[Rfam]
RNA sequence: GCUACAUGAUGAUUCUUGCAGUGACUGAACACGCUGUAGUUGGUCCACAGCAUGUGUCUGAUGUACUGCAGUGUUUCAAGACGGGACUGAUGGCAGC
Number, nucleotide and partner (000 for none) at each position: 001g094002c093003u092004a091005c000006a000007u000008g000009a000010u000011g000012a000013u000014u000015c000016u000017u000018g000019c000020a000021g000022u000023g000024a000025c000026u000027g000028a000029a000030c000031a000032c000033g000034c000035u000036g000037u000038a000039g000040u000041u000042g000043g000044u000045c000046c000047a000048c000049a000050g000051c000052a000053u000054g000055u000056g000057u000058c000059u000060g000061a000062u000063g000064u000065a000066c000067u000068g000069c000070a000071g000072u000073g000074u000075u000076u000077c000078a000079a000080g000081a000082c000083g000084g000085g000086a000087c000088u000089g000090a000091u004092g003093g002094c001095a000096g000097c000

Shown here is a 97-nucleotide sequence from Cardinalis cardinalis, a member of the family "Small nucleolar RNA SNORD21". The family's RNA type in Rfam is C/D-box small nucleolar RNA. The match comes from Rfam's covariance-model search (73 bits). The organism belongs to Cardinalis, within Eukaryota.